Source information: The record is a 66-nucleotide RNA from Silurus meridionalis, which matches "Small nucleolar RNA SNORD82" in Rfam. By type it is a C/D-box small nucleolar RNA. Taxonomically the source falls in Silurus (Eukaryota, Euteleostomi, Actinopterygii, Characiphysae). The base pairs follow the family's consensus structure, which was predicted with PFOLD. About the family: snoRNA U82 or Z25 is found in both humans and mice.
[Rfam]
RNA sequence: UGCACAGAUGAUGAGUAUUUAGGGACUUAAUACUGACUAUGUGAUGUGGUGUUUGCUCUGAUGUGC
Numbered sequence: 001u002g003c004a005c006a007g008a009u010g011a012u013g014a015g016u017a018u019u020u021a022g023g024g025a026c027u028u029a030a031u032a033c034u035g036a037c038u039a040u041g042u043g044a045u046g047u048g049g050u051g052u053u054u055g056c057u058c059u060g061a062u063g064u065g066c
Stems, first nucleotide, its partner, number of pairs: 002066005